Overview: The family of this 113-nucleotide sequence from Erysipelatoclostridium sp. An173 is "FMN riboswitch aptamer (RFN element)". For this family Rfam cites "Regulation of riboflavin biosynthesis and transport genes in bacteria by transcriptional and translational attenuation" (Vitreschak et al., Nucleic Acids Res, 2002). The family's consensus secondary structure is taken from published work. The source organism's lineage runs through Bacteria, Bacillati, Bacillota, Erysipelotrichia and Thomasclavelia. It scores 108 bits against the family's covariance model.

RNA sequence: GAAAGUCUUCAGGGCAGGGUGCAAUUCCCGACCGGCGGUAAAGUCCGCGAGCGCAAGCUGAAUAGGUGCAAUUCCUAUACCGACAGUAAAGUCUGGAUGAAAGAACGACAUUU
Dot-bracket structure: ..(.((((((......(((.......))).[[((((((....[[))))..((....))...(((((.......)))))]])).(((....]]))).......))).))).)..
Numbered sequence: 001g002a003a004a005g006u007c008u009u010c011a012g013g014g015c016a017g018g019g020u021g022c023a024a025u026u027c028c029c030g031a032c033c034g035g036c037g038g039u040a041a042a043g044u045c046c047g048c049g050a051g052c053g054c055a056a057g058c059u060g061a062a063u064a065g066g067u068g069c070a071a072u073u074c075c076u077a078u079a080c081c082g083a084c085a086g087u088a089a090a091g092u093c094u095g096g097a098u099g100a101a102a103g104a105a106c107g108a109c110a111u112u113u
Stems, first nucleotide, its partner, number of pairs: 003111001005109003008105003017029003031092002033082002035048004043080002051058002062078005084095003